[Rfam]
The family of this 552-nucleotide part of an RNA from Candidatus Methanoperedens nitratireducens is "Archaeal large subunit ribosomal RNA". It scores 2916 bits against the family's covariance model. Taxonomically the source falls in Candidatus Methanoperedens (Archaea, Methanosarcinales, ANME-2 cluster, Candidatus Methanoperedentaceae).
RNA sequence: CACUUAUGCCAUCCGAUGAAUGGCUUGGCUCAAGCGCUGAUGAGGGACGUACCAAGUUGCGAUAAGCCUCGGCGAACCGCAUGGAGGUUUUGAACCGAGGAUGUCCUAAUGAGACCUCUUAGCACUUCGGUGCUGAUCCGUAAGGAUCGGGAACGCCCCGGAUUGAAACAUCUUAGUAGGGGCAGGAAGAGAAAUCAAUUGAGAUGCCGCCAGUAACGGCGAGUGAAAACGGUAGAGUUUAAACUGAAUCCCUGCCGAGAGGCAAGGGAGAUGUGGUGUUAUAAGCCCAAACCGUAUACAGUGCGAACCAGUGAAGUCGAACUUGCCUGGAACGGCAGACCACAGAGUGUGAUAGUCACGUAAACGUAAACUGGAGGACUGUGGCUUGGGCUUGAGUACCGUGGGUCGGAAAUCCCGCGGGAAUUUGGGAGUCAUCAACUUCCAAAACUAAAUACGUCUUGAGACCGAUAGCGUAGUAGUAGCGUGAGCGAAAACUGAAAAGUACCCCAAGAAGGGAGGUUAAAAGCGCCUGAAAUCGGAUGGUGAUGGAGC
Numbered sequence: 001c002a003c004u005u006a007u008g009c010c011a012u013c014c015g016a017u018g019a020a021u022g023g024c025u026u027g028g029c030u031c032a033a034g035c036g037c038u039g040a041u042g043a044g045g046g047a048c049g050u051a052c053c054a055a056g057u058u059g060c061g062a063u064a065a066g067c068c069u070c071g072g073c074g075a076a077c078c079g080c081a082u083g084g085a086g087g088u089u090u091u092g093a094a095c096c097g098a099g100g101a102u103g104u105c106c107u108a109a110u111g112a113g114a115c116c117u118c119u120u121a122g123c124a125c126u127u128c129g130g131u132g133c134u135g136a137u138c139c140g141u142a143a144g145g146a147u148c149g150g151g152a153a154c155g156c157c158c159c160g161g162a163u164u165g166a167a168a169c170a171u172c173u174u175a176g177u178a179g180g181g182g183c184a185g186g187a188a189g190a191g192a193a194a195u196c197a198a199u200u201g202a203g204a205u206g207c208c209g210c211c212a213g214u215a216a217c218g219g220c221g222a223g224u225g226a227a228a229a230c231g232g233u234a235g236a237g238u239u240u241a242a243a244c245u246g247a248a249u250c251c252c253u254g255c256c257g258a259g260a261g262g263c264a265a266g267g268g269a270g271a272u273g274u275g276g277u278g279u280u281a282u283a284a285g286c287c288c289a290a291a292c293c294g295u296a297u298a299c300a301g302u303g304c305g306a307a308c309c310a311g312u313g314a315a316g317u318c319g320a321a322c323u324u325g326c327c328u329g330g331a332a333c334g335g336c337a338g339a340c341c342a343c344a345g346a347g348u349g350u351g352a353u354a355g356u357c358a359c360g361u362a363a364a365c366g367u368a369a370a371c372u373g374g375a376g377g378a379c380u381g382u383g384g385c386u387u388g389g390g391c392u393u394g395a396g397u398a399c400c401g402u403g404g405g406u407c408g409g410a411a412a413u414c415c416c417g418c419g420g421g422a423a424u425u426u427g428g429g430a431g432u433c434a435u436c437a438a439c440u441u442c443c444a445a446a447a448c449u450a451a452a453u454a455c456g457u458c459u460u461g462a463g464a465c466c467g468a469u470a471g472c473g474u475a476g477u478a479g480u481a482g483c484g485u486g487a488g489c490g491a492a493a494a495c496u497g498a499a500a501a502g503u504a505c506c507c508c509a510a511g512a513a514g515g516g517a518g519g520u521u522a523a524a525a526g527c528g529c530c531u532g533a534a535a536u537c538g539g540a541u542g543g544u545g546a547u548g549g550a551g552c
Stems, first nucleotide, its partner, number of pairs: 007545010022530001023495001027466002029463006035456002044107004048061003067100006076088003111120003136147004154185001155183005165172002195202002206233004216224002236449004244276003253264004287389004299381004316365002322338001324337004341345001347359003399420007427443005482489002
Dot-bracket structure: ......((((((((((.....((...((((((((((.......(((((((........))).....((((((...(((.......)))......))))))...))))...(((....)))...............((((....))))......((((((.....((....))......))))).).........((....))...((((......((.....)).....))))..((((....(((......((((....)))).........)))..........((((........((((.............((....(.((((......)))))..(...).(((.......)))....))............))))....)))).........(((((((........)))))))......(((((.......)))))..)))).....)).)))))).))...............((....)).....)..................................).....)))))))))).......
Clan: LSU clan.